[Rfam]
RNA sequence: ACAAUGGAACUGAUAAUGGUAAAUUGAAUAAUCGGCGAUGCUGAUUAUGAUUAAUUUACCCGAGUUCCAUUGU
Numbered sequence: 001a002c003a004a005u006g007g008a009a010c011u012g013a014u015a016a017u018g019g020u021a022a023a024u025u026g027a028a029u030a031a032u033c034g035g036c037g038a039u040g041c042u043g044a045u046u047a048u049g050a051u052u053a054a055u056u057u058a059c060c061c062g063a064g065u066u067c068c069a070u071u072g073u
Stems, first nucleotide, its partner, number of pairs: 001073010
Dot-bracket structure: ((((((((((.....................................................))))))))))
Source information:
The record is a 73-nucleotide RNA sequence from Mizuhopecten yessoensis, which matches "Small nucleolar RNA SNORD69" in Rfam. Taxonomically the source falls in Mizuhopecten (Eukaryota, Opisthokonta, Metazoa, Bivalvia). Gene Ontology terms of the family: nucleolus and RNA processing. Pairs were carried over by alignment from the consensus structure. About the family: snoRNA HBII-210 belongs to the C/D family of snoRNAs. It is the human orthologue of the mouse MBII-210 and is predicted to guide the 2'O-ribose methylation of large 28S rRNA on residue G4464.